RNA sequence: CUGGGAUGAUGCUUCUUUAGCCAAAUCAGACAUUUAAGUCAUCCUUUUCAAAGAUAUAUGUAGGACGGGGUACCUUUUGUUGAAGUGCAUCCUCUGAUGACCCUCGGUUCGGUUUCAUGUCUGACCAGU
Numbered sequence: 001c002u003g004g005g006a007u008g009a010u011g012c013u014u015c016u017u018u019a020g021c022c023a024a025a026u027c028a029g030a031c032a033u034u035u036a037a038g039u040c041a042u043c044c045u046u047u048u049c050a051a052a053g054a055u056a057u058a059u060g061u062a063g064g065a066c067g068g069g070g071u072a073c074c075u076u077u078u079g080u081u082g083a084a085g086u087g088c089a090u091c092c093u094c095u096g097a098u099g100a101c102c103c104u105c106g107g108u109u110c111g112g113u114u115u116c117a118u119g120u121c122u123g124a125c126c127a128g129u
Base pairs, nucleotide, nucleotide: 001128002127003126004125
Source information:
This 129-nucleotide sequence from Hibiscus syriacus belongs to the Rfam family "small nucleolar RNA snoR127". The family's consensus secondary structure was predicted with RNAalifold. The family's RNA type in Rfam is C/D-box small nucleolar RNA.